This 80-nucleotide RNA sequence from Salvia splendens belongs to the Rfam family "Small nucleolar RNA R16". It is annotated as a C/D-box small nucleolar RNA.
[Rfam]
RNA sequence: AAAGGCAAUUGAUGUGAAAUUGUAUUAUUGUACGCUGAAUUUGAUGUGGACUACAACUCCGCUUAUUACCUGAUGCCUUC
Number, nucleotide and partner (000 for none) at each position: 001a000002a000003a078004g077005g076006c075007a074008a000009u000010u000011g000012a000013u000014g000015u000016g000017a000018a000019a000020u000021u000022g000023u000024a000025u000026u000027a000028u000029u000030g000031u000032a000033c000034g000035c000036u000037g000038a000039a000040u000041u000042u000043g000044a000045u000046g000047u000048g000049g000050a000051c000052u000053a000054c000055a000056a000057c000058u000059c000060c000061g000062c000063u000064u000065a000066u000067u000068a000069c000070c000071u000072g000073a000074u007075g006076c005077c004078u003079u000080c000
For this family Rfam cites "Purified box C/D snoRNPs are able to reproduce site-specific 2'-O-methylation of target RNA in vitro" (Galardi et al., Mol Cell Biol, 2002).
Gene Ontology terms of the family: RNA processing and nucleolus.
The match comes from Rfam's covariance-model search (62 bits).